[Rfam]
RNA sequence: UUGCCAGUGUAAGAAUGGCACGGGUAAUUACCAAGAAGCCCGGUAGCCAAUCCCGGUGCAUACUAGUAAUGCUAUGUGCUGAACGGGAGGAUAAAGUACUUGUCUAAACAACAGGGCGAGCGAAAAUGCAGACCGUAACAAAA
Numbered sequence: 001u002u003g004c005c006a007g008u009g010u011a012a013g014a015a016u017g018g019c020a021c022g023g024g025u026a027a028u029u030a031c032c033a034a035g036a037a038g039c040c041c042g043g044u045a046g047c048c049a050a051u052c053c054c055g056g057u058g059c060a061u062a063c064u065a066g067u068a069a070u071g072c073u074a075u076g077u078g079c080u081g082a083a084c085g086g087g088a089g090g091a092u093a094a095a096g097u098a099c100u101u102g103u104c105u106a107a108a109c110a111a112c113a114g115g116g117c118g119a120g121c122g123a124a125a126a127u128g129c130a131g132a133c134c135g136u137a138a139c140a141a142a143a
Stems, first nucleotide, its partner, number of pairs: 021042004051088004055080006064071002096117001099115005120136003
Rfam assigns this 143-nucleotide sequence from Ruminiclostridium cellulolyticum to the family "Group II catalytic intron D1-D4-4". A reference for the family is Bonen and Vogel (2001), "The ins and outs of group II introns", Trends Genet. Its family is annotated with Group II intron splicing in the Gene Ontology. From the family's description: Group II introns are found in rRNA, tRNA and mRNA of organelles in fungi, plants and protists, and also in mRNA in bacteria.